[Rfam]
RNA: Bacterial RNase P class A
RNA sequence: UGAGUGGGCAAGACGAUCGCUGGGGUGCCUUCGGGCAAACUGGAGGAAAGUCCGGGCUCCGCAGGAUAGGAUGGUCGAUAACGUCGACCGGCCGCGAGGCUAGGGAAAGUGCAGCAGAGAAUAGACCGCCGAACGGUUGCAGGCGAUUGUCUUUCGGGACUUUCAAAUUCAAUGCGUGGUAAGGGUGAAACGGUGCGGUAAGAGCGCACCAGCGGUCGAGGUGACUCGAUCGGCUUGGUAAACCCCAUCCGGAGCUAGACCAAACAGAGUGCAGGGGAUUGGCUUUCGGGCUGACUCCCGCGAAGCGAUCCGUUUCGCUAUCGACAUUCGGGUAGGUCGCAACCGAGGCGACGAGCAAUCGUCGUGCACAGAUAAAUGGUCGUCGGCGCGAGGCAACUCGCGUCACAGAACCCGGCUUACUACCCCACUCACGGC
Numbered sequence: 001u002g003a004g005u006g007g008g009c010a011a012g013a014c015g016a017u018c019g020c021u022g023g024g025g026u027g028c029c030u031u032c033g034g035g036c037a038a039a040c041u042g043g044a045g046g047a048a049a050g051u052c053c054g055g056g057c058u059c060c061g062c063a064g065g066a067u068a069g070g071a072u073g074g075u076c077g078a079u080a081a082c083g084u085c086g087a088c089c090g091g092c093c094g095c096g097a098g099g100c101u102a103g104g105g106a107a108a109g110u111g112c113a114g115c116a117g118a119g120a121a122u123a124g125a126c127c128g129c130c131g132a133a134c135g136g137u138u139g140c141a142g143g144c145g146a147u148u149g150u151c152u153u154u155c156g157g158g159a160c161u162u163u164c165a166a167a168u169u170c171a172a173u174g175c176g177u178g179g180u181a182a183g184g185g186u187g188a189a190a191c192g193g194u195g196c197g198g199u200a201a202g203a204g205c206g207c208a209c210c211a212g213c214g215g216u217c218g219a220g221g222u223g224a225c226u227c228g229a230u231c232g233g234c235u236u237g238g239u240a241a242a243c244c245c246c247a248u249c250c251g252g253a254g255c256u257a258g259a260c261c262a263a264a265c266a267g268a269g270u271g272c273a274g275g276g277g278a279u280u281g282g283c284u285u286u287c288g289g290g291c292u293g294a295c296u297c298c299c300g301c302g303a304a305g306c307g308a309u310c311c312g313u314u315u316c317g318c319u320a321u322c323g324a325c326a327u328u329c330g331g332g333u334a335g336g337u338c339g340c341a342a343c344c345g346a347g348g349c350g351a352c353g354a355g356c357a358a359u360c361g362u363c364g365u366g367c368a369c370a371g372a373u374a375a376a377u378g379g380u381c382g383u384c385g386g387c388g389c390g391a392g393g394c395a396a397c398u399c400g401c402g403u404c405a406c407a408g409a410a411c412c413c414g415g416c417u418u419a420c421u422a423c424c425c426c427a428c429u430c431a432c433g434g435c
Stems, first nucleotide, its partner, number of pairs: 001431008012384007020043004026037003048418003052415005057254004064316003069250005074088005089103001090101004104245002109243002111239002126184002128180003133177003192210006212234001213232008258338004267329005307319001309317001347367001348365007